RNA sequence: GUAUUCUAAGGGGGCACAACCACAAAGUACAAUUUAAGUAUAACCUAAUCUUAUAUGCCCCUAUGUAAUUCGUGCAUUACUGCUAGUCACCAUGGAUAUUAUAUA
Numbered sequence: 001g002u003a004u005u006c007u008a009a010g011g012g013g014g015c016a017c018a019a020c021c022a023c024a025a026a027g028u029a030c031a032a033u034u035u036a037a038g039u040a041u042a043a044c045c046u047a048a049u050c051u052u053a054u055a056u057g058c059c060c061c062u063a064u065g066u067a068a069u070u071c072g073u074g075c076a077u078u079a080c081u082g083c084u085a086g087u088c089a090c091c092a093u094g095g096a097u098a099u100u101a102u103a104u105a
Stems, first nucleotide, its partner, number of pairs: 005096004010091002012088002014083003025035004038058002040054004063077005